[Rfam]
RNA sequence: GGUCAUGAGUGACAGUCAUGAGGCCCCGGCUGACUGUCCGGCAACCCUCCGUCCGUGGCGGGGUGCCCCGGGUGAAGACCAGGCCGUGAACAGCAAGGUUCAUGGCAAGCGCGGUCG
Numbered sequence: 001g002g003u004c005a006u007g008a009g010u011g012a013c014a015g016u017c018a019u020g021a022g023g024c025c026c027c028g029g030c031u032g033a034c035u036g037u038c039c040g041g042c043a044a045c046c047c048u049c050c051g052u053c054c055g056u057g058g059c060g061g062g063g064u065g066c067c068c069c070g071g072g073u074g075a076a077g078a079c080c081a082g083g084c085c086g087u088g089a090a091c092a093g094c095a096a097g098g099u100u101c102a103u104g105g106c107a108a109g110c111g112c113g114g115u116c117g
Base pairs, nucleotide, nucleotide: 001080002079003078004077009039011038012037013036014035015034016033021031022030040067041066042065045063046062047061049058050057083106084105085104086103087102088101089100090099091098

This 117-nucleotide RNA sequence from Streptomyces davaonensis belongs to the Rfam family "SAM (S-adenosyl methionine) riboswitch aptamer". Rfam describes the family as follows. SAM-IV is a mRNA element that regulates gene expression via direct sensing of S-adenosylmethionine (SAM or AdoMet). SAM-IV riboswitches share conserved nucleotide positions with the previously described SAM-I riboswitches sequence analysis and molecular recognition experiments suggest that SAM-I and SAM-IV riboswitches share similar ligand binding sites, but have different scaffolds. Clan: SAM clan. The organism belongs to Streptomyces davaonensis, within Bacteria.